[Rfam]
RNA sequence: GGCUACAUGGUGUAAUGGUUCAGCACGUCGGAUUCUGAUUUUCGCAAGAAUCAUAGUUCCGGAGAUCUUGGUUCGAUUCCUAGUGAGGCCU
Numbered sequence: 001g002g003c004u005a006c007a008u009g010g011u012g013u014a015a016u017g018g019u020u021c022a023g024c025a026c027g028u029c030g031g032a033u034u035c036u037g038a039u040u041u042u043c044g045c046a047a048g049a050a051u052c053a054u055a056g057u058u059c060c061g062g063a064g065a066u067c068u069u070g071g072u073u074c075g076a077u078u079c080c081u082a083g084u085g086a087g088g089c090c091u
Stems, first nucleotide, its partner, number of pairs: 001090004006085002010026004028062005067083002070080002
This 91-nucleotide RNA from Phialocephala subalpina belongs to the Rfam family "tRNA". The organism belongs to Phialocephala fortinii species complex, within Eukaryota. The family's RNA type in Rfam is transfer RNA. From the family's description: Transfer RNA (tRNA) molecules are approximately 80 nucleotides in length. Gene Ontology term of the family: triplet codon-amino acid adaptor activity.